[Rfam]
RNA sequence: CGAGUAAAACAUACGGCGGCGGGGCGUUUCACGCGCUCUGAGGAAAGUCCGGGCUCCACAAGGGAAUGGUAACUGCUAACGGCAGCCGGGGGUGACCCCAGGGAUAGUGCAACAGAAAUAGACUACCCGCGUUUUGCGCGGGAAAAGGUGGAAAGGUGCGGUAAGAGCGCACCAGCGCGCUUGGUGACUUGCGCGGCUCUGUAAACCCUACCAGGAGCAACGCCCAUAUGGGAACUAUGCGUGCCCUGCGCGUUCCCGGAGGCGGCUGGAGCUGCAUGGCAACAUGCAGUCGAGAUAGAUCGUCGUUUAAUACAGAACCCGGCUUACGGUUUAGUCGUUUG
Number, nucleotide and partner (000 for none) at each position: 001c337002g336003a335004g000005u333006a332007a331008a330009a000010c328011a000012u000013a306014c305015g304016g303017c302018g301019g000020c040021g039022g038023g037024g036025c035026g034027u033028u000029u000030c000031a000032c000033g027034c026035g025036c024037u023038c022039u021040g020041a000042g000043g000044a000045a325046a324047g323048u000049c322050c321051g320052g319053g318054c217055u216056c215057c214058a000059c000060a000061a000062g246063g245064g244065a000066a000067u213068g212069g211070u210071a209072a000073c085074u084075g083076c082077u000078a000079a000080c000081g000082g076083c075084a074085g073086c000087c101088g099089g098090g097091g096092g000093u000094g000095a000096c091097c090098c089099c088100a000101g087102g208103g207104a000105u000106a000107g206108u205109g202110c201111a200112a000113c000114a000115g000116a000117a000118a000119u000120a000121g000122a000123c147124u146125a000126c142127c141128c140129g139130c138131g137132u136133u000134u000135u000136g132137c131138g130139c129140g128141g127142g126143a000144a000145a000146a124147g123148g000149u000150g000151g000152a000153a000154a000155g173156g172157u171158g170159c169160g168161g000162u000163a000164a000165g000166a000167g000168c160169g159170c158171a157172c156173c155174a000175g197176c195177g194178c193179g192180c191181u000182u000183g188184g000185u000186g000187a000188c183189u000190u000191g180192c179193g178194c177195g176196g000197c175198u000199c000200u111201g110202u109203a000204a000205a108206c107207c103208c102209u071210a070211c069212c068213a067214g057215g056216a055217g054218c000219a000220a000221c264222g263223c262224c261225c000226a000227u000228a000229u000230g257231g256232g255233a254234a253235c252236u000237a000238u000239g000240c000241g000242u000243g000244c064245c063246c062247u000248g000249c000250g000251c000252g235253u234254u233255c232256c231257c230258g000259g000260a000261g224262g223263c222264g221265g000266c000267u000268g000269g000270a000271g290272c289273u288274g287275c286276a285277u284278g283279g000280c000281a000282a000283c278284a277285u276286g275287c274288a273289g272290u271291c000292g000293a000294g000295a000296u000297a000298g000299a000300u000301c018302g017303u016304c015305g014306u013307u000308u000309a000310a000311u000312a000313c000314a000315g000316a000317a000318c053319c052320c051321g050322g049323c047324u046325u045326a000327c000328g010329g000330u008331u007332u006333a005334g000335u003336c002337g001338u000339u000340u000341g000
RNA: Bacterial RNase P class A
Organism: Ruthenibacterium lactatiformans